Shown here is a 37-nucleotide sequence from Synechocystis sp. PCC 6803, a member of the family "CRISPR RNA direct repeat element". Rfam links the family to the GO term defense response.
[Rfam]
RNA sequence: CUUUCCUUCUACUAAUCCCGGCGAUCGGGACUGAAAC
Numbered sequence: 001c002u003u004u005c006c007u008u009c010u011a012c013u014a015a016u017c018c019c020g021g022c023g024a025u026c027g028g029g030a031c032u033g034a035a036a037c
Stems, first nucleotide, its partner, number of pairs: 013033002016030005
The base pairs follow the family's consensus structure, which was predicted with WAR.